[Rfam]
RNA sequence: CAGCUCUGACCAUAGAGUUGUCCCUACUCUGACAUGCGUGAGGAGUGAUCUUCGGGUGUGAAGCUCAGAGGACAAUGUAACAGUAAAGUGCUAGGGAAAAUACCGAACGUGGUAAACGAAAGUGAACAUAUGUAAAAUUAGGCUCCGUAAAAGG
Numbered sequence: 001c002a003g004c005u006c007u008g009a010c011c012a013u014a015g016a017g018u019u020g021u022c023c024c025u026a027c028u029c030u031g032a033c034a035u036g037c038g039u040g041a042g043g044a045g046u047g048a049u050c051u052u053c054g055g056g057u058g059u060g061a062a063g064c065u066c067a068g069a070g071g072a073c074a075a076u077g078u079a080a081c082a083g084u085a086a087a088g089u090g091c092u093a094g095g096g097a098a099a100a101u102a103c104c105g106a107a108c109g110u111g112g113u114a115a116a117c118g119a120a121a122g123u124g125a126a127c128a129u130a131u132g133u134a135a136a137a138u139u140a141g142g143c144u145c146c147g148u149a150a151a152a153g154g
Stems, first nucleotide, its partner, number of pairs: 002019006028069005033060005039054006092106001094104002107133004116123002
This 154-nucleotide RNA from Pyrrhoderma noxium belongs to the Rfam family "Group II catalytic intron D1-D4-7". Rfam 15.1 lists 1,296 matches to the family in 705 species. Rfam links the family to the GO term Group II intron splicing. For this family Rfam cites "The ins and outs of group II introns" (Bonen and Vogel, Trends Genet, 2001). The organism belongs to Pyrrhoderma, within Eukaryota. Group II introns are found in rRNA, tRNA and mRNA of organelles in fungi, plants and protists, and also in mRNA in bacteria.